[Rfam]
RNA sequence: CUGCGGUGUGCCCGGAACUUUGUCUCAACCUGGACUCUACACGCAGGUGAGCAAAGUUUCAGGUGUGUUGCAGG
Numbered sequence: 001c002u003g004c005g006g007u008g009u010g011c012c013c014g015g016a017a018c019u020u021u022g023u024c025u026c027a028a029c030c031u032g033g034a035c036u037c038u039a040c041a042c043g044c045a046g047g048u049g050a051g052c053a054a055a056g057u058u059u060c061a062g063g064u065g066u067g068u069u070g071c072a073g074g
Stems, first nucleotide, its partner, number of pairs: 002072006009065004014060002017057005024051004029047003
Dot-bracket structure: .((((((.((((.((.(((((..((((.(((.............))))))).))))).)).)))).))))))..

Overview:
mir-87 microRNA precursor family: a 74-nucleotide RNA from Haemaphysalis longicornis. NCBI's taxonomy places the organism under Eukaryota, Chelicerata, Acari, Ixodida, Haemaphysalis. Its family is annotated with miRNA-mediated post-transcriptional gene silencing and RISC complex in the Gene Ontology.